This 64-nucleotide sequence from Anabarilius grahami belongs to the Rfam family "Selenocysteine insertion sequence 1".
RNA sequence: GGGACGUUAAUGAUGUCCACAGCUGUAAAAGCCUGAGACUGGCUGGGGACUGAUGAUCUGUGUU
Numbered sequence: 001g002g003g004a005c006g007u008u009a010a011u012g013a014u015g016u017c018c019a020c021a022g023c024u025g026u027a028a029a030a031g032c033c034u035g036a037g038a039c040u041g042g043c044u045g046g047g048g049a050c051u052g053a054u055g056a057u058c059u060g061u062g063u064u
Stems, first nucleotide, its partner, number of pairs: 001064002004061002015050004020045005031039001033037001

The organism belongs to Anabarilius, within Eukaryota. A search with the family's covariance model found it, with a score of 38 bits. The base pairs follow the family's consensus structure, which is taken from published work.